[Rfam]
RNA sequence: AGGAUAUAAGAACUCGUCUCUUAACUUUUAACUAAAAAAACUAACAACCAACUCUUAAAUAAGGUAUUUAAGAGCCGGUUUUUAGCUUUUUUAGUUAAAAAUUAAGAGAUGAAUUCUUACAUCCC
Numbered sequence: 001a002g003g004a005u006a007u008a009a010g011a012a013c014u015c016g017u018c019u020c021u022u023a024a025c026u027u028u029u030a031a032c033u034a035a036a037a038a039a040a041c042u043a044a045c046a047a048c049c050a051a052c053u054c055u056u057a058a059a060u061a062a063g064g065u066a067u068u069u070a071a072g073a074g075c076c077g078g079u080u081u082u083u084a085g086c087u088u089u090u091u092u093a094g095u096u097a098a099a100a101a102u103u104a105a106g107a108g109a110u111g112a113a114u115u116c117u118u119a120c121a122u123c124c125c
Stems, first nucleotide, its partner, number of pairs: 002124004007119006014112011026100014041085004046080002